[Rfam]
RNA sequence: AGAGGGGGUCACAGAAUGAGCUCUCUCAUUGUGACCCCUGUCAGAUUUUAUCUGAAUCUCCAAUCCUACU
Numbered sequence: 001a002g003a004g005g006g007g008g009u010c011a012c013a014g015a016a017u018g019a020g021c022u023c024u025c026u027c028a029u030u031g032u033g034a035c036c037c038c039u040g041u042c043a044g045a046u047u048u049u050a051u052c053u054g055a056a057u058c059u060c061c062a063a064u065c066c067u068a069c070u
Stems, first nucleotide, its partner, number of pairs: 005038006013070002016067001018065002020032002043059006
The record is a 70-nucleotide RNA sequence from Erpetoichthys calabaricus, which matches "Mammalian CPEB3 ribozyme" in Rfam.
The mammalian CPEB3 ribozyme is a self cleaving RNA located in the second intron of the CPEB3 gene which belongs to a family of genes regulating messenger RNA polyadenylation.
The source organism's lineage runs through Eukaryota, Craniata, Teleostomi, Actinopterygii and Erpetoichthys.